[Rfam]
RNA sequence: GGUGCAAGUGAUGACAGUAUAGACAGGGACUCAGACUCUUAGGAGGAUGUUCGAUUUGUCUUUUGGGAAAAUCUCUGAUGCACC
Numbered sequence: 001g002g003u004g005c006a007a008g009u010g011a012u013g014a015c016a017g018u019a020u021a022g023a024c025a026g027g028g029a030c031u032c033a034g035a036c037u038c039u040u041a042g043g044a045g046g047a048u049g050u051u052c053g054a055u056u057u058g059u060c061u062u063u064u065g066g067g068a069a070a071a072u073c074u075c076u077g078a079u080g081c082a083c084c
Base pairs, nucleotide, nucleotide: 002083003082004081005080006079
RNA: Small nucleolar RNA R44/J54/Z268 family